[Rfam]
RNA sequence: UUAUGCAAGCAAACGACACUCAGCUCGGCACCAGCGCAGCCCGGAUGGCCUCCGGCAUGACCUCGCGCGCGCGCCGACCGGAACCCCACAUUCUCGCUGGGUAAACCGGAGCGUCGUGCUGUCCG
Numbered sequence: 001u002u003a004u005g006c007a008a009g010c011a012a013a014c015g016a017c018a019c020u021c022a023g024c025u026c027g028g029c030a031c032c033a034g035c036g037c038a039g040c041c042c043g044g045a046u047g048g049c050c051u052c053c054g055g056c057a058u059g060a061c062c063u064c065g066c067g068c069g070c071g072c073g074c075c076g077a078c079c080g081g082a083a084c085c086c087c088a089c090a091u092u093c094u095c096g097c098u099g100g101g102u103a104a105a106c107c108g109g110a111g112c113g114u115c116g117u118g119c120u121g122u123c124c125g
Stems, first nucleotide, its partner, number of pairs: 032121005039112002041109002043079002046076004055070002058067002080107002085101004089096001
This 125-nucleotide sequence from Stenotrophomonas panacihumi belongs to the Rfam family "Xanthomonadaceae sRNA Xoo5". The match comes from Rfam's covariance-model search (123 bits). The family's consensus secondary structure was predicted with RNAalifold. NCBI's taxonomy places the organism under Bacteria, Pseudomonadota, Lysobacterales, Lysobacteraceae, Stenotrophomonas.